[Rfam]
RNA sequence: GCCAUGCCUGUGUUCUAUGGCUUUCUAUUCCUAUGUGAUUUCUCUCUGGUAUGUCAUAUAGGGUUUAAAGCCAUUGGGUACAGAGUGGA
Numbered sequence: 001g002c003c004a005u006g007c008c009u010g011u012g013u014u015c016u017a018u019g020g021c022u023u024u025c026u027a028u029u030c031c032u033a034u035g036u037g038a039u040u041u042c043u044c045u046c047u048g049g050u051a052u053g054u055c056a057u058a059u060a061g062g063g064u065u066u067a068a069a070g071c072c073a074u075u076g077g078g079u080a081c082a083g084a085g086u087g088g089a
Stems, first nucleotide, its partner, number of pairs: 002088004008083008017074008027065001029063010
A member of the RNA family "mir-135 microRNA precursor family" from Oncorhynchus mykiss, 89 nucleotides long. Rfam 15.1 lists 2,125 matches to the family in 647 species. On this family, see Lagos-Quintana et al., Curr Biol 2002: "Identification of tissue-specific microRNAs from mouse". The match comes from Rfam's covariance-model search (72 bits). The source organism's lineage runs through Eukaryota, Chordata, Craniata, Osteoglossocephalai and Oncorhynchus.